[Rfam]
RNA sequence: AAGAUUCGCAAGGCCAUCCAUAAGGAUAUCGGUGCAAGCCCGAUGGGAGAGCGGCGACCUCUCCUGGCGCUCAUGGAUCCAUA
Numbered sequence: 001a002a003g004a005u006u007c008g009c010a011a012g013g014c015c016a017u018c019c020a021u022a023a024g025g026a027u028a029u030c031g032g033u034g035c036a037a038g039c040c041c042g043a044u045g046g047g048a049g050a051g052c053g054g055c056g057a058c059c060u061c062u063c064c065u066g067g068c069g070c071u072c073a074u075g076g077a078u079c080c081a082u083a
Stems, first nucleotide, its partner, number of pairs: 004078004013068003018025002028044004045065006

Shown here is an 83-nucleotide sequence, a member of the family "Twister_sister_ribozyme". The sequence is in the family's curated seed alignment. A reference for the family is Weinberg et al. (2015), "New classes of self-cleaving ribozymes revealed by comparative genomics analysis", Nat Chem Biol. Rfam links the family to the GO term catalytic activity.